The record is an 81-nucleotide sequence from Muraenolepis orangiensis, which matches "Mammalian CPEB3 ribozyme" in Rfam.
Taxonomically the source falls in Muraenolepis (Eukaryota, Osteoglossocephalai, Acanthomorphata, Gadiformes).
Pairs were carried over by alignment from the consensus structure, which is taken from published work.
The mammalian CPEB3 ribozyme is a self cleaving RNA located in the second intron of the CPEB3 gene which belongs to a family of genes regulating messenger RNA polyadenylation.

RNA sequence: UACAUAGAGCAGGGGAAAAUGGUAGAAGUGUUCUCGUCGCAACCCCUGUCAGGCUUUUAACAAACCCUUGCGAGUUCUACA
Numbered sequence: 001u002a003c004a005u006a007g008a009g010c011a012g013g014g015g016a017a018a019a020u021g022g023u024a025g026a027a028g029u030g031u032u033c034u035c036g037u038c039g040c041a042a043c044c045c046c047u048g049u050c051a052g053g054c055u056u057u058u059a060a061c062a063a064a065c066c067c068u069u070g071c072g073a074g075u076u077c078u079a080c081a
Base pairs, nucleotide, nucleotide: 013046014045015044022080023079024078025077026076027075028040029039030038050070051069053067055064056063057062